[Rfam]
RNA sequence: UGCUGUUUAUGAUGAUUGUUUAAUACAAUGGGAAUCUCUCUGAAUAAGAGUGAAAGACACAUUUGUACUGAAACAGUA
Numbered sequence: 001u002g003c004u005g006u007u008u009a010u011g012a013u014g015a016u017u018g019u020u021u022a023a024u025a026c027a028a029u030g031g032g033a034a035u036c037u038c039u040c041u042g043a044a045u046a047a048g049a050g051u052g053a054a055a056g057a058c059a060c061a062u063u064u065g066u067a068c069u070g071a072a073a074c075a076g077u078a
Stems, first nucleotide, its partner, number of pairs: 001078007
Rfam assigns this 78-nucleotide RNA from Hemibagrus wyckioides to the family "Small nucleolar RNA SNORD79". Rfam describes the family as follows. snoRNA U79 or Z22 is found in intron 7 of the gas5 gene in humans and is also present in mice. By type it is a C/D-box small nucleolar RNA. Clan: SNORD74 clan. Taxonomically the source falls in Hemibagrus (Eukaryota, Euteleostomi, Actinopterygii, Otomorpha).